[Rfam]
RNA sequence: AUGUGUUCGAUGGGGGUCAUUGUAAAAGCGUGCUCGUCGCAACCCCUGCCAGCCCUUUUCAGGGCUGCAAUUCUACA
Numbered sequence: 001a002u003g004u005g006u007u008c009g010a011u012g013g014g015g016g017u018c019a020u021u022g023u024a025a026a027a028g029c030g031u032g033c034u035c036g037u038c039g040c041a042a043c044c045c046c047u048g049c050c051a052g053c054c055c056u057u058u059u060c061a062g063g064g065c066u067g068c069a070a071u072u073c074u075a076c077a
Stems, first nucleotide, its partner, number of pairs: 013046005021077004026072002028040003050067007